[Rfam]
RNA sequence: ACUGGCAGUAGAGGUGCGCUGGAUAAGAGUCGUGGCAAGUAGGUGAUUCCGUUUUAUGUGCCACAAAAGGAUUCAGCGCCGAAGCAGUGUGAAGUAUCAAAUCAACUGCUGGGGCUGUGGCCGAAUAGGCGCAGCACUGUCACAGAAAGAUGAUUGAGUACCGACUCAAUCCUGUGGAGCGCUACUUAAUUU
Numbered sequence: 001a002c003u004g005g006c007a008g009u010a011g012a013g014g015u016g017c018g019c020u021g022g023a024u025a026a027g028a029g030u031c032g033u034g035g036c037a038a039g040u041a042g043g044u045g046a047u048u049c050c051g052u053u054u055u056a057u058g059u060g061c062c063a064c065a066a067a068a069g070g071a072u073u074c075a076g077c078g079c080c081g082a083a084g085c086a087g088u089g090u091g092a093a094g095u096a097u098c099a100a101a102u103c104a105a106c107u108g109c110u111g112g113g114g115c116u117g118u119g120g121c122c123g124a125a126u127a128g129g130c131g132c133a134g135c136a137c138u139g140u141c142a143c144a145g146a147a148a149g150a151u152g153a154u155u156g157a158g159u160a161c162c163g164a165c166u167c168a169a170u171c172c173u174g175u176g177g178a179g180c181g182c183u184a185c186u187u188a189a190u191u192u
Stems, first nucleotide, its partner, number of pairs: 007186005016079009032064006039057001083110005090104003111138002114135006121128001140177006
RNA: Lysine riboswitch aptamer